[Rfam]
The record is a 442-nucleotide part of an RNA from Candidatus Nanohalobium constans, which matches "Archaeal large subunit ribosomal RNA" in Rfam. Pairs were carried over by alignment from the consensus structure, which is taken from published work. Gene Ontology terms of the family: structural constituent of ribosome and ribosome.
RNA sequence: CCACUCGAAAUGGAUCGAAGUCCAACCUUCGACGAGACUGCUGUAGAGGUAAAGCUACUGAUUUUGGCUGCCUGUAGGCUCUGCCUACAGGACCGAAGUCAAACUCUGAACUCUGCAGCGUUAUAGACUCGAGGAGUGAGGGAUGGCGCGUAAGGUGCCAUUCCGAGAGGGAAACAACCCAGAGAAAGGUUAAGGCCCCCAAUUCCUGACUAAGUGCACAUGAAGGGCGUUUCGGUUCUCAGACAGCGGGGAGGUUAGCUUAGAAGCAGCUACCCUUUAAAGAUAGCGUAACAGCUCACCCGUUGAGAACUGAAGCACCGUAAAUGGACGGGGCUCAAGUCAGGAGCCGAGACCUUUCCAUCGUUUAUCGAUGGGUAGAGUGGCGUUCCGCAGGGACAGAAGCAUGGCUGUGAAGUCGUGUGGACCGUGUGGAAACGAGAAU
Numbered sequence: 001c002c003a004c005u006c007g008a009a010a011u012g013g014a015u016c017g018a019a020g021u022c023c024a025a026c027c028u029u030c031g032a033c034g035a036g037a038c039u040g041c042u043g044u045a046g047a048g049g050u051a052a053a054g055c056u057a058c059u060g061a062u063u064u065u066g067g068c069u070g071c072c073u074g075u076a077g078g079c080u081c082u083g084c085c086u087a088c089a090g091g092a093c094c095g096a097a098g099u100c101a102a103a104c105u106c107u108g109a110a111c112u113c114u115g116c117a118g119c120g121u122u123a124u125a126g127a128c129u130c131g132a133g134g135a136g137u138g139a140g141g142g143a144u145g146g147c148g149c150g151u152a153a154g155g156u157g158c159c160a161u162u163c164c165g166a167g168a169g170g171g172a173a174a175c176a177a178c179c180c181a182g183a184g185a186a187a188g189g190u191u192a193a194g195g196c197c198c199c200c201a202a203u204u205c206c207u208g209a210c211u212a213a214g215u216g217c218a219c220a221u222g223a224a225g226g227g228c229g230u231u232u233c234g235g236u237u238c239u240c241a242g243a244c245a246g247c248g249g250g251g252a253g254g255u256u257a258g259c260u261u262a263g264a265a266g267c268a269g270c271u272a273c274c275c276u277u278u279a280a281a282g283a284u285a286g287c288g289u290a291a292c293a294g295c296u297c298a299c300c301c302g303u304u305g306a307g308a309a310c311u312g313a314a315g316c317a318c319c320g321u322a323a324a325u326g327g328a329c330g331g332g333g334c335u336c337a338a339g340u341c342a343g344g345a346g347c348c349g350a351g352a353c354c355u356u357u358c359c360a361u362c363g364u365u366u367a368u369c370g371a372u373g374g375g376u377a378g379a380g381u382g383g384c385g386u387u388c389c390g391c392a393g394g395g396a397c398a399g400a401a402g403c404a405u406g407g408c409u410g411u412g413a414a415g416u417c418g419u420g421u422g423g424a425c426c427g428u429g430u431g432g433a434a435a436c437g438a439g440a441a442u
Base pairs, nucleotide, nucleotide: 001383002382003381004380005379006378011024012023013022014021015020026136027134028133029132030131031130032129036122037121038120040119041118042117043116044115045114046113047112052107053105054104060100061099062098063097064096065095066094067093069091073089074088075087076086077085078084140164141163142162143161144160145159146158147157148156169180170179171178184358185357186356187355188354189353190352194348195347196346203345205344206343207342208341209340210339225319226318229316230315231314232313233312234311235310236309237308238307246303247302248301249300250299252276253275254274257271258270259269277281282297286295287294359373360372361371362370363369384437386434387433388432389431390430391429392428394426395425402421403420404419405418406417407416408415409414